Bacterial RNase P class B: a 379-nucleotide RNA from Facklamia miroungae. NCBI's taxonomy places the organism under Bacteria, Bacillati, Bacillota, Lactobacillales, Facklamia. Ribonuclease P (RNase P) is a ubiquitous endoribonuclease, found in archaea, bacteria and eukarya as well as chloroplasts and mitochondria. Its best characterised activity is the generation of mature 5'-ends of tRNAs by cleaving the 5'-leader elements of precursor-tRNAs. Cellular RNase Ps are ribonucleoproteins. Gene Ontology terms of the family: ribonuclease P activity, tRNA processing and dimeric ribonuclease P complex.
[Rfam]
RNA sequence: AAUUUCAGGUAAUCGCGGUCAAUUAAUUUGGCUGAGGAAAGUCCAUGCUCGCACAAGCUGAAAUGCUUGUAGUGUUCGUGCUUAGCGAAACAAUAAGCUAAGGUAGCCUUAAGGUGAACGGCGAGUGAAAAUUCUAAGGCUUAGCUAAGAAUCAGUAACUUAUAAAGUGCCACAGUGACGAUCCUUUUUGGAAACAAAAAGCUGAAACGCGGUAAACCCCUCGAGCGAGCAACCCAAAUUUGGUAGGGGCACUCUCUAAAUGGAAAAAUGCUCAAGCAUUGGUCAACCAUAGGAGAGACAAGUUAUCUUGUAGAUAGAUGAUUACCCUUUAUUUAUUCUUGCCUAUGGAAUAAAUAUUGACAGAACAUGGCUUAUCGAA
Numbered sequence: 001a002a003u004u005u006c007a008g009g010u011a012a013u014c015g016c017g018g019u020c021a022a023u024u025a026a027u028u029u030g031g032c033u034g035a036g037g038a039a040a041g042u043c044c045a046u047g048c049u050c051g052c053a054c055a056a057g058c059u060g061a062a063a064u065g066c067u068u069g070u071a072g073u074g075u076u077c078g079u080g081c082u083u084a085g086c087g088a089a090a091c092a093a094u095a096a097g098c099u100a101a102g103g104u105a106g107c108c109u110u111a112a113g114g115u116g117a118a119c120g121g122c123g124a125g126u127g128a129a130a131a132u133u134c135u136a137a138g139g140c141u142u143a144g145c146u147a148a149g150a151a152u153c154a155g156u157a158a159c160u161u162a163u164a165a166a167g168u169g170c171c172a173c174a175g176u177g178a179c180g181a182u183c184c185u186u187u188u189u190g191g192a193a194a195c196a197a198a199a200a201g202c203u204g205a206a207a208c209g210c211g212g213u214a215a216a217c218c219c220c221u222c223g224a225g226c227g228a229g230c231a232a233c234c235c236a237a238a239u240u241u242g243g244u245a246g247g248g249g250c251a252c253u254c255u256c257u258a259a260a261u262g263g264a265a266a267a268a269u270g271c272u273c274a275a276g277c278a279u280u281g282g283u284c285a286a287c288c289a290u291a292g293g294a295g296a297g298a299c300a301a302g303u304u305a306u307c308u309u310g311u312a313g314a315u316a317g318a319u320g321a322u323u324a325c326c327c328u329u330u331a332u333u334u335a336u337u338c339u340u341g342c343c344u345a346u347g348g349a350a351u352a353a354a355u356a357u358u359g360a361c362a363g364a365a366c367a368u369g370g371c372u373u374a375u376c377g378a379a
Base pairs, nucleotide, nucleotide: 004379005378006377007375008326009325010324011323012322013321014320016034017033018032019031020030021029039373040372041371043370044369045368046367047366048229049228050227051226052225053070054069055068056067057066058065076224077223078222080220081102082101083100084099085098086097103119104117106115107114108113120219121218123161124160125159126158131152132151133150134149138146139145140144167217168216169213170212171211184201185200186199187198188197189196190195233248234247235246252297253296254295255294256293257292298311299310300309301308302307330356331355332354333353334352335351336350337349338348339347